[Rfam]
RNA: mir-460 microRNA precursor family
Organism: Sphenodon punctatus
RNA sequence: CUCUAUGUUGUCCUCAUUGUACAUGCUGUGUGUAUUUUUAGAGCGUACACAGCGCAUGCAAUGUGGACAUUGAUGGA
Numbered sequence: 001c002u003c004u005a006u007g008u009u010g011u012c013c014u015c016a017u018u019g020u021a022c023a024u025g026c027u028g029u030g031u032g033u034a035u036u037u038u039u040a041g042a043g044c045g046u047a048c049a050c051a052g053c054g055c056a057u058g059c060a061a062u063g064u065g066g067a068c069a070u071u072g073a074u075g076g077a
Stems, first nucleotide, its partner, number of pairs: 012066002015063007024054001026052006